[Rfam]
This 83-nucleotide sequence from Alligator sinensis belongs to the Rfam family "Small nucleolar RNA SNORD121A". The family's consensus secondary structure was predicted with WAR. The family has 26 seed sequences and 881 matches in Rfam 15.1. Gene Ontology terms of the family: RNA processing and nucleolus.
RNA sequence: GUCCAGAAGACAGUGAUGUAUUUUUCCAAGCACAUAUCGGAUUGCUCUGUGAGGAAAUCCAACCACUUCUGAGUUUUCUGGAC
Numbered sequence: 001g002u003c004c005a006g007a008a009g010a011c012a013g014u015g016a017u018g019u020a021u022u023u024u025u026c027c028a029a030g031c032a033c034a035u036a037u038c039g040g041a042u043u044g045c046u047c048u049g050u051g052a053g054g055a056a057a058u059c060c061a062a063c064c065a066c067u068u069c070u071g072a073g074u075u076u077u078c079u080g081g082a083c
Stems, first nucleotide, its partner, number of pairs: 001083006008076004